[Rfam]
A member of the RNA family "Archaeal large subunit ribosomal RNA" from Salinarchaeum sp. Harcht-Bsk1, 97 nucleotides of a longer RNA. It scores 2832 bits against the family's covariance model.
RNA sequence: GACGGGGCACGAAAGGUCCCCUGUGAAACGACAGUAGUGCGAACUACCAGUAGGAAGCAGGGGAAGCCGGUGUUCCGUCGUACGUUUUGAAAAACGG
Number, nucleotide and partner (000 for none) at each position: 001g079002a078003c077004g076005g075006g074007g073008c072009a071010c070011g000012a000013a000014a000015g068016g067017u000018c000019c062020c061021c060022u059023g058024u057025g000026a000027a000028a000029c053030g000031a000032c000033a000034g047035u046036a045037g044038u043039g000040c000041g000042a000043a038044c037045u036046a035047c034048c000049a000050g000051u000052a000053g029054g000055a000056a000057g024058c023059a022060g021061g020062g019063g000064a000065a000066g000067c016068c015069g000070g010071u009072g008073u007074u006075c005076c004077g003078u002079c001080g000081u000082a000083c096084g095085u094086u000087u000088u000089g000090a000091a000092a000093a000094a085095c084096g083097g000